This 158-nucleotide RNA from Ursus americanus belongs to the Rfam family "Small nucleolar RNA SNORA15". The base pairs follow the family's consensus structure, which was predicted with RNAfold. Rfam's curators write: ACA15 is a member of the H/ACA class of snoRNA that guide the sites of modification of uridines to pseudouridines. For this family Rfam cites "RNomics: an experimental approach that identifies 201 candidates for novel, small, non-messenger RNAs in mouse" (Huttenhofer et al., EMBO J, 2001). The organism belongs to Ursus, within Eukaryota.

RNA sequence: GCAUGGCUGAAUACUGUGUUCUCUUUAUCAGUUGUUUACAUAGCCAGAUAUCAUGCAAAAAAAAAGAAAGAAAGAAAAAAGCAUUCUUCCCUUUAAAGUGGUUACGAUGGCAUGCCAAGUCUUUUCAUAGCAUAUCAUUAUUAAAGGGAAAUACAAAU
Numbered sequence: 001g002c003a004u005g006g007c008u009g010a011a012u013a014c015u016g017u018g019u020u021c022u023c024u025u026u027a028u029c030a031g032u033u034g035u036u037u038a039c040a041u042a043g044c045c046a047g048a049u050a051u052c053a054u055g056c057a058a059a060a061a062a063a064a065a066g067a068a069a070g071a072a073a074g075a076a077a078a079a080a081g082c083a084u085u086c087u088u089c090c091c092u093u094u095a096a097a098g099u100g101g102u103u104a105c106g107a108u109g110g111c112a113u114g115c116c117a118a119g120u121c122u123u124u125u126c127a128u129a130g131c132a133u134a135u136c137a138u139u140a141u142u143a144a145a146g147g148g149a150a151a152u153a154c155a156a157a158u
Stems, first nucleotide, its partner, number of pairs: 001056006014043006087151002090147007106139005112133004117128001